Shown here is an 82-nucleotide RNA from Toxostoma redivivum, a member of the family "Small nucleolar RNA SNORD111". For this family Rfam cites "Purified box C/D snoRNPs are able to reproduce site-specific 2'-O-methylation of target RNA in vitro" (Galardi et al., Mol Cell Biol, 2002). Taxonomically the source falls in Toxostoma (Eukaryota, Bilateria, Craniata, Archelosauria). The family has 5 seed sequences and 894 matches in Rfam 15.1. By type it is a C/D-box small nucleolar RNA. The family's consensus secondary structure was predicted with RNAalifold.

RNA sequence: CGGCCUGAAAUGAUGUUCUGAGUUCAUGUCUCUUCUCUGAGAUGUCUUGUGGAGACAGCCAGUUGCAUUUCUGAUCAGGCUU
Number, nucleotide and partner (000 for none) at each position: 001c000002g081003g080004c079005c078006u000007g000008a000009a000010a000011u000012g000013a000014u000015g000016u000017u000018c000019u000020g000021a000022g000023u000024u000025c000026a000027u000028g000029u000030c000031u000032c000033u000034u000035c000036u000037c000038u000039g000040a000041g000042a000043u000044g000045u000046c000047u000048u000049g000050u000051g000052g000053a000054g000055a000056c000057a000058g000059c000060c000061a000062g000063u000064u000065g000066c000067a000068u000069u000070u000071c000072u000073g000074a000075u000076c000077a000078g005079g004080c003081u002082u000